A member of the RNA family "Purine riboswitch aptamer", 100 nucleotides long.
The base pairs follow the family's consensus structure, which is taken from published work.
[Rfam]
RNA sequence: UAUAUAAAAACAUAAUCCAAUUGUAUAACCUCAUUGAUAUGGUAUGAGGGUCUCUACCAGGAACCGUAAAAUCCUGAUUACGAAAAAGAAUGUAAUGUAU
Numbered sequence: 001u002a003u004a005u006a007a008a009a010a011c012a013u014a015a016u017c018c019a020a021u022u023g024u025a026u027a028a029c030c031u032c033a034u035u036g037a038u039a040u041g042g043u044a045u046g047a048g049g050g051u052c053u054c055u056a057c058c059a060g061g062a063a064c065c066g067u068a069a070a071a072u073c074c075u076g077a078u079u080a081c082g083a084a085a086a087a088g089a090a091u092g093u094a095a096u097g098u099a100u
Base pairs, nucleotide, nucleotide: 021083022082023081024080025079029049030048031047032046033045034044058076059075060074061073062072
The match comes from Rfam's covariance-model search (72 bits).